A member of the RNA family "skipping-rope RNA", 98 nucleotides long. The family's consensus secondary structure is taken from published work. The family's RNA type in Rfam is small RNA.
RNA sequence: CAUGCCGGAGGUGGGAAAUUGUGUUGCACCCACGCACCUUGCGUACAUGACGUAACGGUUAAAAGAGAUGGAGCAGAUUGCAACGGCUCCCCGGCAUA
Numbered sequence: 001c002a003u004g005c006c007g008g009a010g011g012u013g014g015g016a017a018a019u020u021g022u023g024u025u026g027c028a029c030c031c032a033c034g035c036a037c038c039u040u041g042c043g044u045a046c047a048u049g050a051c052g053u054a055a056c057g058g059u060u061a062a063a064a065g066a067g068a069u070g071g072a073g074c075a076g077a078u079u080g081c082a083a084c085g086g087c088u089c090c091c092c093g094g095c096a097u098a
Stems, first nucleotide, its partner, number of pairs: 002097007011033005023084005035065001036059003070090005